[Rfam]
RNA sequence: UUGCUGUGAUGACAGUCUUAGGACACCUUUGGAACACCUAUGACAAAAAAUUAAUUCUCUGAGCAAC
Dot-bracket structure: ((((..........................................................)))).
Numbered sequence: 001u002u003g004c005u006g007u008g009a010u011g012a013c014a015g016u017c018u019u020a021g022g023a024c025a026c027c028u029u030u031g032g033a034a035c036a037c038c039u040a041u042g043a044c045a046a047a048a049a050a051u052u053a054a055u056u057c058u059c060u061g062a063g064c065a066a067c
Stems, first nucleotide, its partner, number of pairs: 001066004
Rfam assigns this 67-nucleotide RNA from Mesitornis unicolor to the family "Small nucleolar RNA SNORD58". NCBI's taxonomy places the organism under Eukaryota, Chordata, Aves, Columbimorphae, Mesitornis. snoRNA U58 is found in introns 1, 3 and 6 of the ribosomal protein RPL17 gene in humans. The family has 33 seed sequences and 2,484 matches in Rfam 15.1. The literature on the family includes a 2002 paper in Mol Cell Biol by Galardi et al., "Purified box C/D snoRNPs are able to reproduce site-specific 2'-O-methylation of target RNA in vitro". Clan: SNORD58 clan. Rfam links the family to the GO terms nucleolus and RNA processing.